Nucleotides: 123
Stems, first nucleotide, its partner, number of pairs: 001123008013043005021032003028079002044073004049069002051065004077115001082112002084109003
Number, partner (000 for none) and nucleotide at each position: 001123a002122u003121g004120u005119u006118a007117u008116c009000a010000a011000g012000a013043a014042a015041g016040g017039c018000u019000g020000a021032g022031g023030g024000a025000a026000a027000u028079g029078a030023c031022c032021c033000u034000a035000u036000g037000a038000a039017g040016c041015c042014u043013u044073a045072g046071c047070a048000a049069c050068c051065c052064u053063u054062u055000c056000a057000c058000u059000u060000a061000g062054a063053a064052a065051g066000a067000a068050g069049g070047u071046g072045c073044u074000a075000c076000a077115u078029u079028c080000u081000a082112c083111c084109c085108a086107a087000g088000a089000a090000u091000c092000g093000c094000u095000c096000a097000u098000u099000a100000c101000c102000g103000a104000a105000a106000c107086u108085u109084g110000a111083g112082g113000a114000u115077a116008g117007a118006u119005a120004a121003c122002a123001u
A member of the RNA family "SAM riboswitch aptamer (S box leader)" from Dokdonia pacifica, 123 nucleotides long. The organism belongs to Dokdonia, within Bacteria. From the family's description: The SAM riboswitch is found upstream of a number of genes which code for proteins involved in methionine or cysteine biosynthesis in Gram-positive bacteria.